Rfam assigns this 223-nucleotide sequence from Desulfofundulus thermobenzoicus to the family "HNH endonuclease-associated RNA and ORF (HEARO) RNA". It scores 132 bits against the family's covariance model. NCBI's taxonomy places the organism under Bacteria, Bacillota, Eubacteriales, Peptococcaceae, Desulfofundulus. A reference for the family is Weinberg et al. (2009), "Exceptional structured noncoding RNAs revealed by bacterial metagenome analysis", Nature. By type it is a non-coding RNA gene.
RNA sequence: GUCAAUUACCCCCGGCACGAGGCCGGGGGCUUGCGGGAAUACCCCGUAAGCCUCGGGUUGACUAGUCCGAGCCCGGCUUAACCGGGCUACGUUGAUAGGGCCAUCACACCCCGGAGUGUAGCCCGAGCUCCGGGCACUGUGGUCCGGGAUUAAAAGCCCCGCGGGGUAGGAGCGGUGUUCCGGGCGAGACAAACCCUUUCAACAUGGGCGACGGGCACAAUAA
Numbered sequence: 001g002u003c004a005a006u007u008a009c010c011c012c013c014g015g016c017a018c019g020a021g022g023c024c025g026g027g028g029g030c031u032u033g034c035g036g037g038a039a040u041a042c043c044c045c046g047u048a049a050g051c052c053u054c055g056g057g058u059u060g061a062c063u064a065g066u067c068c069g070a071g072c073c074c075g076g077c078u079u080a081a082c083c084g085g086g087c088u089a090c091g092u093u094g095a096u097a098g099g100g101c102c103a104u105c106a107c108a109c110c111c112c113g114g115a116g117u118g119u120a121g122c123c124c125g126a127g128c129u130c131c132g133g134g135c136a137c138u139g140u141g142g143u144c145c146g147g148g149a150u151u152a153a154a155a156g157c158c159c160c161g162c163g164g165g166g167u168a169g170g171a172g173c174g175g176u177g178u179u180c181c182g183g184g185c186g187a188g189a190c191a192a193a194c195c196c197u198u199u200c201a202a203c204a205u206g207g208g209c210g211a212c213g214g215g216c217a218c219a220a221u222a223a
Stems, first nucleotide, its partner, number of pairs: 001062007010029002012026002015023002030050008065209005070088005091203005097197004106140002110134008121216005142185009154176001156173002159170002